[Rfam]
RNA sequence: AACCACAAUAUCAAUGAAUGGAUUCACCUGUGAGAUGACGUGGUUGUUUCACCUAGGAUGAGGACGUGGCAUCCUAUUAAUUUCGUGAGAUGGCUGGUAAUAGGAUGCAUGUCAUUGUCCUAUGUGGAACAACCAAGUCAUCUCACGGGUGAAUCUAUUUAUUGAUAGUGUGGUU
Numbered sequence: 001a002a003c004c005a006c007a008a009u010a011u012c013a014a015u016g017a018a019u020g021g022a023u024u025c026a027c028c029u030g031u032g033a034g035a036u037g038a039c040g041u042g043g044u045u046g047u048u049u050c051a052c053c054u055a056g057g058a059u060g061a062g063g064a065c066g067u068g069g070c071a072u073c074c075u076a077u078u079a080a081u082u083u084c085g086u087g088a089g090a091u092g093g094c095u096g097g098u099a100a101u102a103g104g105a106u107g108c109a110u111g112u113c114a115u116u117g118u119c120c121u122a123u124g125u126g127g128a129a130c131a132a133c134c135a136a137g138u139c140a141u142c143u144c145a146c147g148g149g150u151g152a153a154u155c156u157a158u159u160u161a162u163u164g165a166u167a168g169u170g171u172g173g174u175u
Base pairs, nucleotide, nucleotide: 001175002174003173004172005171006170007169009167010166011165012164013163014162015161017159018158019157021155022154023153024152025151026150027149028148030146031145032144033143035141036140037139038138039137041135042134043133044132045131046130047129048128051125052124054122055121057119058118063113064112065111069108070107071106072105073104074103075102076101077100078099079098
RNA: MIR807 microRNA precursor family
Organism: Oryza sativa